[Rfam]
RNA sequence: UGGGCUGGCCGGGCGACCGCGUCGGCGUACCGAGAGGUGCGUCGCCGAGGAAGGUCCGGGCUCCACAGGGCGAGGUGGUGGGCAACACCCACCCGGGGUGACCCGCGGGACAGUGCCACAGAGAACAGACCGCCGCCCUCCUCCGGGGAGAGCGGUAAGGGUGAAACGGUGGUGCAAGAGACCACCAGCGGCCCGGGCGACCGGGCCGGCUAGGCAAACCCCACCUGGAGCAAGGUCAAGAAGUCCGGGCGAGAGCCCGGGCGCGUGUGCGUUCGAGGGCGGCCCGCCCGAGCACGCGGGUAGACCGCUGGAGGGGGUCGGCAACGGCUCCCGUAGAUGGAUGGUCGCCCCCCGGGAGACCGGGGACAGAACCCGGCCUACAGGCCAGCCCGUCCG
Numbered sequence: 001u002g003g004g005c006u007g008g009c010c011g012g013g014c015g016a017c018c019g020c021g022u023c024g025g026c027g028u029a030c031c032g033a034g035a036g037g038u039g040c041g042u043c044g045c046c047g048a049g050g051a052a053g054g055u056c057c058g059g060g061c062u063c064c065a066c067a068g069g070g071c072g073a074g075g076u077g078g079u080g081g082g083c084a085a086c087a088c089c090c091a092c093c094c095g096g097g098g099u100g101a102c103c104c105g106c107g108g109g110a111c112a113g114u115g116c117c118a119c120a121g122a123g124a125a126c127a128g129a130c131c132g133c134c135g136c137c138c139u140c141c142u143c144c145g146g147g148g149a150g151a152g153c154g155g156u157a158a159g160g161g162u163g164a165a166a167c168g169g170u171g172g173u174g175c176a177a178g179a180g181a182c183c184a185c186c187a188g189c190g191g192c193c194c195g196g197g198c199g200a201c202c203g204g205g206c207c208g209g210c211u212a213g214g215c216a217a218a219c220c221c222c223a224c225c226u227g228g229a230g231c232a233a234g235g236u237c238a239a240g241a242a243g244u245c246c247g248g249g250c251g252a253g254a255g256c257c258c259g260g261g262c263g264c265g266u267g268u269g270c271g272u273u274c275g276a277g278g279g280c281g282g283c284c285c286g287c288c289c290g291a292g293c294a295c296g297c298g299g300g301u302a303g304a305c306c307g308c309u310g311g312a313g314g315g316g317g318u319c320g321g322c323a324a325c326g327g328c329u330c331c332c333g334u335a336g337a338u339g340g341a342u343g344g345u346c347g348c349c350c351c352c353c354g355g356g357a358g359a360c361c362g363g364g365g366a367c368a369g370a371a372c373c374c375g376g377c378c379u380a381c382a383g384g385c386c387a388g389c390c391c392g393u394c395c396g
Stems, first nucleotide, its partner, number of pairs: 001392010011381001012349007020047002023044008052379003056376005061230004068285004073226005078092005093107001094105004108221002113219002115215003130160002132156005138150003168186006188210001189208008234306004265297006277289004313332008
RNA: Bacterial RNase P class A